A member of the RNA family "MIR2629 microRNA precursor family" from Medicago truncatula, 72 nucleotides long. Taxonomically the source falls in Medicago (Eukaryota, Streptophyta, Euphyllophyta, Gunneridae). The base pairs follow the family's consensus structure, which was predicted with RNAalifold.
RNA sequence: UGCCGAGGUUUUUCUCGAUAGUUAACUGCAGUCGGAUUUAUUUUUUCUCGACAGUUAACUGCCGAGGGAUAU
Numbered sequence: 001u002g003c004c005g006a007g008g009u010u011u012u013u014c015u016c017g018a019u020a021g022u023u024a025a026c027u028g029c030a031g032u033c034g035g036a037u038u039u040a041u042u043u044u045u046u047c048u049c050g051a052c053a054g055u056u057a058a059c060u061g062c063c064g065a066g067g068g069a070u071a072u
Base pairs, nucleotide, nucleotide: 012068013067015065016064017063019061020060021059022058023057024056025055026054027053028052